Shown here is a 37-nucleotide RNA from Phoenix dactylifera, a member of the family "Plastid psbT antisense RNA". Rfam describes the family as follows. Plastid-psbT-asRNA is an antisense RNA (asRNA) motif reported in Plastids It has been shown that psbT expression is controlled by two antisense RNAs originated from psbN transcription by the nuclear-encoded polymerase (NEP), in which the short antisense RNA hybridizes to psbT CDS, thereby stabilizing psbT transcript while blocking its translation during photooxidative stress. The organism belongs to Phoenix, within Eukaryota.
[Rfam]
RNA sequence: GUAGUUGGAUCCCAAGUUUUUGAAAUGUUCCAAAUUC
Numbered sequence: 001g002u003a004g005u006u007g008g009a010u011c012c013c014a015a016g017u018u019u020u021u022g023a024a025a026u027g028u029u030c031c032a033a034a035u036u037c
Stems, first nucleotide, its partner, number of pairs: 003017001005015004019034004024029001